[Rfam]
RNA sequence: CGACAAUACUGGACUAGAAUGGGCACUGCUGAUUGGUGUCCAGAAUUGGUCAAUGUGGCUAAAUUGAGACACAGGUCAAGUUCCCGUCACAGCAAACGUUUACAGUGGUGACAGGCCUGUAACAUGU
Numbered sequence: 001c002g003a004c005a006a007u008a009c010u011g012g013a014c015u016a017g018a019a020u021g022g023g024c025a026c027u028g029c030u031g032a033u034u035g036g037u038g039u040c041c042a043g044a045a046u047u048g049g050u051c052a053a054u055g056u057g058g059c060u061a062a063a064u065u066g067a068g069a070c071a072c073a074g075g076u077c078a079a080g081u082u083c084c085c086g087u088c089a090c091a092g093c094a095a096a097c098g099u100u101u102a103c104a105g106u107g108g109u110g111a112c113a114g115g116c117c118u119g120u121a122a123c124a125u126g127u
Base pairs, nucleotide, nucleotide: 001058004055005054007053020042021041022040023039024038025037026036071120072119073118074117075116085110086109087108088107089106090105
Dot-bracket structure: (..((.(............(((((((.........)))))))..........)))..)............(((((.........((((((..............)))))).....))))).......